Record summary
This 384-nucleotide part of an RNA from Leuconostoc fallax belongs to the Rfam family "Bacterial large subunit ribosomal RNA". Its family is annotated with structural constituent of ribosome and ribosome in the Gene Ontology. Taxonomically the source falls in Leuconostoc (Bacteria, Bacilli, Lactobacillales, Lactobacillaceae). Pairs were carried over by alignment from the consensus structure, which is taken from published work.
RNA sequence: GAAAGACAGGUGAGAAUCCUGUCCACCGAAUGACUAAGGUUUCCUGGGGAAGGCUCGUCCACCCAGGGUUAGUCGGGACCUAAGGCGAGGCCGAGAGGCGUAGUCGAUGGAUAACAGGUUGAGAUUCCUGUACCAAUGCUAAUGCGUUAUCACCGAUGGAGGGACGCAGGAGGCUAACAGAAGCGCACGGUUGGAAAAGUGCGUGUAAAUAGUAAGUCUAGUGAAGAGUGAAAUGCUUUUGACUGUUAGGACAAGCUAUGAUGCGGAUCGAAAUAAAGUAGAGAAGUCUGUGAUGUCACACUGCCGAGAAAAGCUUCUAGGGAGUAUUAGGUUGCCCGUACCGCAAACCGACACAGGUAGUCGAGUAGAGAAUACUAAGGUGAG
Numbered sequence: 001g002a003a004a005g006a007c008a009g010g011u012g013a014g015a016a017u018c019c020u021g022u023c024c025a026c027c028g029a030a031u032g033a034c035u036a037a038g039g040u041u042u043c044c045u046g047g048g049g050a051a052g053g054c055u056c057g058u059c060c061a062c063c064c065a066g067g068g069u070u071a072g073u074c075g076g077g078a079c080c081u082a083a084g085g086c087g088a089g090g091c092c093g094a095g096a097g098g099c100g101u102a103g104u105c106g107a108u109g110g111a112u113a114a115c116a117g118g119u120u121g122a123g124a125u126u127c128c129u130g131u132a133c134c135a136a137u138g139c140u141a142a143u144g145c146g147u148u149a150u151c152a153c154c155g156a157u158g159g160a161g162g163g164a165c166g167c168a169g170g171a172g173g174c175u176a177a178c179a180g181a182a183g184c185g186c187a188c189g190g191u192u193g194g195a196a197a198a199g200u201g202c203g204u205g206u207a208a209a210u211a212g213u214a215a216g217u218c219u220a221g222u223g224a225a226g227a228g229u230g231a232a233a234u235g236c237u238u239u240u241g242a243c244u245g246u247u248a249g250g251a252c253a254a255g256c257u258a259u260g261a262u263g264c265g266g267a268u269c270g271a272a273a274u275a276a277a278g279u280a281g282a283g284a285a286g287u288c289u290g291u292g293a294u295g296u297c298a299c300a301c302u303g304c305c306g307a308g309a310a311a312a313g314c315u316u317c318u319a320g321g322g323a324g325u326a327u328u329a330g331g332u333u334g335c336c337c338g339u340a341c342c343g344c345a346a347a348c349c350g351a352c353a354c355a356g357g358u359a360g361u362c363g364a365g366u367a368g369a370g371a372a373u374a375c376u377a378a379g380g381u382g383a384g
Base pairs, nucleotide, nucleotide: 005023006022007021008020009019010018024382025381026380027379032362033361034360035359038342039341043067044066045065046064047063048062052060053059074338075337076336077335079110080109084105085104086103088101090099091098092097114131115130116129117128118127134334135333136332137331139330140329141328142327143326144325153322154321158317159316160315161314166304167303168302169301172297173296174295177291178290179289180288181287183204184203185202186201187200188199205264206263209259210258211257212256216252217251218250220244221243222242223240224239225238226237228236229235268282269281271279348357349356364376365375366374367373